[Rfam]
RNA sequence: AUACUUACCUGGCAGAGAAGAUACCAAGAUCAUGAGGGUGGUUUUCCCAGGGCAAGGCUUAUCUAUUGCACUCCGGAUGUGCUGACCCCUGCGAUUUCCCCAAAUGUGGGAAUACUGGACUGCAUAAUUUGUGGUAGUGGGGAACUGCGUAGCGUUCGCGCUGUCCCCUA
Numbered sequence: 001a002u003a004c005u006u007a008c009c010u011g012g013c014a015g016a017g018a019a020g021a022u023a024c025c026a027a028g029a030u031c032a033u034g035a036g037g038g039u040g041g042u043u044u045u046c047c048c049a050g051g052g053c054a055a056g057g058c059u060u061a062u063c064u065a066u067u068g069c070a071c072u073c074c075g076g077a078u079g080u081g082c083u084g085a086c087c088c089c090u091g092c093g094a095u096u097u098c099c100c101c102a103a104a105u106g107u108g109g110g111a112a113u114a115c116u117g118g119a120c121u122g123c124a125u126a127a128u129u130u131g132u133g134g135u136a137g138u139g140g141g142g143a144a145c146u147g148c149g150u151a152g153c154g155u156u157c158g159c160g161c162u163g164u165c166c167c168c169u170a
Stems, first nucleotide, its partner, number of pairs: 012123004017047001019045003023042004049090004056083003060079005092118001094116001095114001096112002099109002139168004144164001147161003

Shown here is a 170-nucleotide RNA sequence from Camelus ferus, a member of the family "U1 spliceosomal RNA". The base pairs follow the family's consensus structure, which is taken from published work. U1 is a small nuclear RNA (snRNA) component of the spliceosome (involved in pre-mRNA splicing). Its 5' end forms complementary base pairs with the 5' splice junction, thus defining the 5' donor site of an intron. There are significant differences in sequence and secondary structure between metazoan and yeast U1 snRNAs, the latter being much longer (568 nucleotides as compared to 164 nucleotides in human). Nevertheless, secondary structure predictions suggest that all U1 snRNAs share a 'common core' consisting of helices I, II, the proximal region of III, and IV. This family does not contain the larger yeast sequences. The literature on the family includes a 2001 paper in J Biol Chem by Katsamba et al., "Two functionally distinct steps mediate high affinity binding of U1A protein to U1 hairpin II RNA". The match comes from Rfam's covariance-model search (131 bits).